[Rfam]
RNA sequence: UAAAAUGCAAUGUUUAGAACCGAAUAUAAUUAAGCGAUAUGGGCUUUAAGUUUCUACCGGACACCGUAAAUGUUCAGACUAUUGGUUCUAAAUAAACUCAU
Numbered sequence: 001u002a003a004a005a006u007g008c009a010a011u012g013u014u015u016a017g018a019a020c021c022g023a024a025u026a027u028a029a030u031u032a033a034g035c036g037a038u039a040u041g042g043g044c045u046u047u048a049a050g051u052u053u054c055u056a057c058c059g060g061a062c063a064c065c066g067u068a069a070a071u072g073u074u075c076a077g078a079c080u081a082u083u084g085g086u087u088c089u090a091a092a093u094a095a096a097c098u099c100a101u
Stems, first nucleotide, its partner, number of pairs: 018087004023083004030049002032046004058077001059075005